[Rfam]
RNA: L31-Actinobacteria ribosomal protein leader
RNA sequence: UCGGCCCCGGUUCACGUGACGCAAUCAGCGCCACGACCCGGAGCC
Numbered sequence: 001u002c003g004g005c006c007c008c009g010g011u012u013c014a015c016g017u018g019a020c021g022c023a024a025u026c027a028g029c030g031c032c033a034c035g036a037c038c039c040g041g042a043g044c045c
Stems, first nucleotide, its partner, number of pairs: 003045003007041004015035004020030003